[Rfam]
RNA sequence: CGGCCCACCAUGCGGGACGCUCUACGACGCCGGCCGCUGAGCCGGAUACCCUGGCCGGGUGCGUCCCCGUUCGGGGGGACCGCAUAGCCGACAGCCGUCGCACCCAGGGAGAUGCCCCAUG
Numbered sequence: 001c002g003g004c005c006c007a008c009c010a011u012g013c014g015g016g017a018c019g020c021u022c023u024a025c026g027a028c029g030c031c032g033g034c035c036g037c038u039g040a041g042c043c044g045g046a047u048a049c050c051c052u053g054g055c056c057g058g059g060u061g062c063g064u065c066c067c068c069g070u071u072c073g074g075g076g077g078g079a080c081c082g083c084a085u086a087g088c089c090g091a092c093a094g095c096c097g098u099c100g101c102a103c104c105c106a107g108g109g110a111g112a113u114g115c116c117c118c119a120u121g
Stems, first nucleotide, its partner, number of pairs: 060084004065077004087101002090099003